Shown here is a 133-nucleotide sequence from Alteribacillus bidgolensis, a member of the family "Ribosomal protein L20 leader". It is annotated as a cis-regulatory leader. NCBI's taxonomy places the organism under Bacteria, Bacillati, Caryophanales, Bacillaceae, Alteribacillus.
RNA sequence: CAAAACAAGCAGAAGCGCCCGCUUCUCACCUGACUGACGCCCUGGGCUGUUGGCAGGUUAUGGUGAUUUCCAUGAAUAGUGAGAAACGAUCAUCGUGUGGGCGCAGUAUGUGUGCCUGCUUUUUUAUACUUUA
Numbered sequence: 001c002a003a004a005a006c007a008a009g010c011a012g013a014a015g016c017g018c019c020c021g022c023u024u025c026u027c028a029c030c031u032g033a034c035u036g037a038c039g040c041c042c043u044g045g046g047c048u049g050u051u052g053g054c055a056g057g058u059u060a061u062g063g064u065g066a067u068u069u070c071c072a073u074g075a076a077u078a079g080u081g082a083g084a085a086a087c088g089a090u091c092a093u094c095g096u097g098u099g100g101g102c103g104c105a106g107u108a109u110g111u112g113u114g115c116c117u118g119c120u121u122u123u124u125u126a127u128a129c130u131u132u133a
Stems, first nucleotide, its partner, number of pairs: 011026006028058003036051003039047002097119009
The literature on the family includes a 1994 paper in Prog Nucleic Acid Res Mol Biol by Zengel and Lindahl, "Diverse mechanisms for regulating ribosomal protein synthesis in Escherichia coli".